[Rfam]
RNA sequence: UCCGCAUGAAAGACAAGGUAGUGAGAAUUUGUGAUGUCCUGGACAUCUCACUACCCCUGUCUUUCACACAGCA
Numbered sequence: 001u002c003c004g005c006a007u008g009a010a011a012g013a014c015a016a017g018g019u020a021g022u023g024a025g026a027a028u029u030u031g032u033g034a035u036g037u038c039c040u041g042g043a044c045a046u047c048u049c050a051c052u053a054c055c056c057c058u059g060u061c062u063u064u065c066a067c068a069c070a071g072c073a
Base pairs, nucleotide, nucleotide: 008065009064010063011062012061013060014059015058017055018054020052021051022050023049024048025047026046